[Rfam]
RNA sequence: UUCGAAUAGCGCGGGAAAUAAUUCACGAAGACAAAGCCGCGGGCCUGGUCGAUGGCGUGAAACAGCGGGUUCCAGUCGAACAUCGCCAGCAUGUACCCCGGCAGCGUGUUGGCGACGAACAUCUUGCCCGAGGCGAUCAUGUUGGCGCGGGUG
Number, nucleotide and partner (000 for none) at each position: 001u000002u034003c000004g032005a000006a000007u029008a000009g000010c000011g000012c000013g023014g022015g000016a000017a000018a000019u000020a000021a000022u014023u013024c000025a000026c000027g000028a000029a007030g000031a000032c004033a000034a002035a000036g056037c055038c054039g053040c051041g050042g049043g000044c000045c000046u000047g000048g000049u042050c041051g040052a000053u039054g038055g037056c036057g000058u000059g000060a000061a000062a000063c153064a152065g000066c149067g148068g000069g081070u080071u079072c078073c000074a000075g000076u000077c000078g072079a071080a070081c069082a000083u000084c000085g146086c145087c144088a143089g142090c141091a140092u139093g138094u000095a000096c000097c133098c132099c130100g129101g128102c126103a125104g124105c000106g122107u121108g000109u118110u117111g116112g000113c000114g000115a000116c111117g110118a109119a000120c000121a107122u106123c000124u104125u103126g102127c000128c101129c100130g099131a000132g098133g097134c000135g000136a000137u000138c093139a092140u091141g090142u089143u088144g087145g086146c085147g000148c067149g066150g000151g000152u064153g063
The family of this 153-nucleotide sequence from Rhodobacteraceae bacterium AsT-22 is "Ruegeria cis2 sRNA". The organism belongs to Paracoccaceae, within Bacteria. For this family Rfam cites "Experimental Identification of Small Non-Coding RNAs in the Model Marine Bacterium Ruegeria pomeroyi DSS-3" (Rivers et al., Front Microbiol, 2016). It scores 107 bits against the family's covariance model.